[Rfam]
RNA sequence: CGUUCCGGGACACCGAGCAAACCCCUGGGCAGGAGCGGGGGACCCAGGUUAGUUGCCGCCCCCAACGGCUUGGGGUGAAGCCGCGCACCCGCGCGGCCGGGCCACCUCCCGGUCCGAACCCGACAGCUCACCUCGCAGGCGUACGGAGAGGAACG
Numbered sequence: 001c002g003u004u005c006c007g008g009g010a011c012a013c014c015g016a017g018c019a020a021a022c023c024c025c026u027g028g029g030c031a032g033g034a035g036c037g038g039g040g041g042a043c044c045c046a047g048g049u050u051a052g053u054u055g056c057c058g059c060c061c062c063c064a065a066c067g068g069c070u071u072g073g074g075g076u077g078a079a080g081c082c083g084c085g086c087a088c089c090c091g092c093g094c095g096g097c098c099g100g101g102c103c104a105c106c107u108c109c110c111g112g113u114c115c116g117a118a119c120c121c122g123a124c125a126g127c128u129c130a131c132c133u134c135g136c137a138g139g140c141g142u143a144c145g146g147a148g149a150g151g152a153a154c155g
Stems, first nucleotide, its partner, number of pairs: 004034003035136006045072006073121003081096004099115004

Description: This 155-nucleotide sequence from Saccharothrix sp. ST-888 belongs to the Rfam family "c-di-AMP riboswitch aptamer (ydaO/yuaA leader)". From the family's description: This family represents a conserved RNA structure found upstream of the ydaO and yuaA genes in Bacillus subtilis and related genes in other bacteria. Its family is annotated with regulation of gene expression and cyclic-di-AMP binding in the Gene Ontology.